[Rfam]
RNA sequence: AGAUGGACUAGGUCGGGCGGUUAGGCCCCGCUCGUAUACCACAAGUGGCCUUAAGUGGGACCAAAUUCCGGGGGCGUGCGGUAGACGGUCGCGGGCCCCGCAAGCCAACGUCGAAGCCUCGUCCUUCGGGGAUGGAGGUCCAGACGACUGUGCCUGCAGGGGCGCAGGCGUCUGGUUAACCGAGGGUAGUCCGCCAGGCGCGGAAGCGAGCAGCGGGCCCUCGGACAUCUGUCGCUCGAAGGGCCGCGGGGUGGAGGAGGCACGCGGGCCUACCCGCGUCCGAACGCCGUGCAAUCUCGGCAGUCCACAU
Dot-bracket structure: (..((((((.((((((((((.......)))))).....((((............)))))))).....((((((..(((((.....(((.((((((.(((((..(((..(.(....((((((((((((((((((((.((.(((((((.((((((((....)))))))).))))))).)..(((((((...(((((....(((....)))....)))))))))))).)..))))).))))))))...))))))).).)..)))..)))))....)))))).)))....).))))..)))))).))))))..)
Numbered sequence: 001a002g003a004u005g006g007a008c009u010a011g012g013u014c015g016g017g018c019g020g021u022u023a024g025g026c027c028c029c030g031c032u033c034g035u036a037u038a039c040c041a042c043a044a045g046u047g048g049c050c051u052u053a054a055g056u057g058g059g060a061c062c063a064a065a066u067u068c069c070g071g072g073g074g075c076g077u078g079c080g081g082u083a084g085a086c087g088g089u090c091g092c093g094g095g096c097c098c099c100g101c102a103a104g105c106c107a108a109c110g111u112c113g114a115a116g117c118c119u120c121g122u123c124c125u126u127c128g129g130g131g132a133u134g135g136a137g138g139u140c141c142a143g144a145c146g147a148c149u150g151u152g153c154c155u156g157c158a159g160g161g162g163c164g165c166a167g168g169c170g171u172c173u174g175g176u177u178a179a180c181c182g183a184g185g186g187u188a189g190u191c192c193g194c195c196a197g198g199c200g201c202g203g204a205a206g207c208g209a210g211c212a213g214c215g216g217g218c219c220c221u222c223g224g225a226c227a228u229c230u231g232u233c234g235c236u237c238g239a240a241g242g243g244c245c246g247c248g249g250g251g252u253g254g255a256g257g258a259g260g261c262a263c264g265c266g267g268g269c270c271u272a273c274c275c276g277c278g279u280c281c282g283a284a285c286g287c288c289g290u291g292c293a294a295u296c297u298c299g300g301c302a303g304u305c306c307a308c309a310u
Stems, first nucleotide, its partner, number of pairs: 001310001004307006011062004015033006039058004068300006076292004080287001086282003090278006097268005104261003109256001111254001116252007123242008131233005137226001138177001140175007148167008180224007190217005199208003

Notes: The record is a 310-nucleotide RNA from Halovenus aranensis, which matches "Archaeal signal recognition particle RNA" in Rfam. For this family Rfam cites "Towards the structure of the mammalian signal recognition particle" (Wild et al., Curr Opin Struct Biol, 2002). Taxonomically the source falls in Halovenus (Archaea, Methanobacteriati, Halobacteria, Haloarculaceae). By type it is a non-coding RNA gene.